The family of this 73-nucleotide RNA from Branchiostoma belcheri is "mir-4878 microRNA precursor family". The sequence is in the family's curated seed alignment. The source organism's lineage runs through Eukaryota, Metazoa, Bilateria, Leptocardii and Branchiostoma.
RNA sequence: UGUCCCUGAUUUGGAGUGCAGAGUGGCCUGUUAACGACAGACCAGGUCUUUCUACAUCUCCAAAACAGGGCCC
Numbered sequence: 001u002g003u004c005c006c007u008g009a010u011u012u013g014g015a016g017u018g019c020a021g022a023g024u025g026g027c028c029u030g031u032u033a034a035c036g037a038c039a040g041a042c043c044a045g046g047u048c049u050u051u052c053u054a055c056a057u058c059u060c061c062a063a064a065a066c067a068g069g070g071c072c073c
Stems, first nucleotide, its partner, number of pairs: 004070005010064007017056002020053004025048006
Rfam links the family to the GO terms miRNA-mediated post-transcriptional gene silencing and RISC complex. The family's consensus secondary structure was predicted with RNAalifold. Rfam 15.1 lists 3 matches to the family in 3 species.